[Rfam]
Nucleotides: 372
Stems, first nucleotide, its partner, number of pairs: 001368007019341006027333001033328001035326003043316005048068005054083007122141002125138005150186006157177007167196002204232005210226003216245005248286005255281003259274002265308007345361005
Number, partner (000 for none) and nucleotide at each position: 001368g002367g003366g004365g005364a006363u007362g008000a009000u010000c011000g012000g013000u014000u015000u016000c017000g018000a019341c020340a021339u022338c023337g024336c025000c026000u027333g028000u029000g030000a031000c032000u033328c034000u035326g036325c037324g038000a039000g040000a041000a042000g043316c044315g045314g046313g047312c048068c049067g050066a051065g052064g053000a054083u055082g056081c057080a058079g059078g060077g061000u062000u063000a064052u065051c066050u067049c068048g069000u070000a071000a072000a073000c074000g075000a076000u077060c078059u079058c080057u081056g082055c083054g084000a085000a086000c087000c088000a089000a090000u091000a092000a093000c094000u095000g096000c097000c098000a099000a100000u101000a102000a103000g104000a105000a106000g107000c108000a109000g110000u111000c112000c113000g114000a115000c116000u117000u118000c119000g120000c121000c122141c123140u124000c125138g126137c127136u128135g129134c130000g131000u132000a133000a134129g135128c136127a137126g138125c139000u140123a141122g142000c143000u144000c145000g146000a147000g148000u149000c150186c151185g152184u153183c154182a155181g156000u157177c158176c159175g160174u161173g162172a163171g164000u165000g166000a167196u168195c169000c170000c171163c172162u173161c174160a175159u176158g177157g178000u179000c180000c181155c182154u183153g184152g185151c186150g187000u188000c189000a190000u191000u192000u193000a194000a195168g196167g197000g198000a199000u200000c201000u202000c203000g204232c205231u206230g207229c208228g209000c210226g211225g212224c213000g214000u215000c216245g217244c218243c219242u220241g221000a222000g223000c224212g225211u226210c227000a228208c229207g230206c231205g232204g233000g234000a235000c236000u237000u238000u239000u240000u241220c242219a243218g244217g245216c246000u247000g248286g249285g250284c251283u252282c253000g254000u255281c256280g257279a258000c259274u260273c261000a262000u263000g264000u265308g266307u267306c268305u269304g270303u271302a272000c273260g274259a275000a276000g277000u278000g279257u280256c281255g282252g283251g284250g285249c286248c287000g288000a289000g290000u291000a292000g293000a294000a295000c296000g297000c298000c299000a300000u301000u302271u303270a304269c305268a306267g307266a308265c309000u310000g311000c312047g313046c314045c315044c316043g317000g318000a319000g320000a321000a322000g323000a324037c325036g326035c327000c328033g329000u330000c331000u332000c333027u334000c335000a336024g337023c338022g339021a340020u341019g342000g343000a344000c345361g346360g347359g348358g349357g350000u351000u352000c353000g354000a355000u356000u357349c358348c359347c360346c361345c362007c363006a364005u365004c366003u367002c368001c369000a370000c371000g372000a

transfer-messenger RNA: a 372-nucleotide RNA from Microbacterium oleivorans. The match comes from Rfam's covariance-model search (163 bits). Bacterial tmRNA, also known as 10Sa RNA or SsrA, is named for its dual tRNA and mRNA-like properties. Its role is to liberate the mRNA from a stalled ribosome. The base pairs follow the family's consensus structure, which is taken from published work. For this family Rfam cites "Phylogenetic analysis of tmRNA secondary structure" (Williams and Bartel, RNA, 1996). Taxonomically the source falls in Microbacterium (Bacteria, Bacillati, Micrococcales, Microbacteriaceae).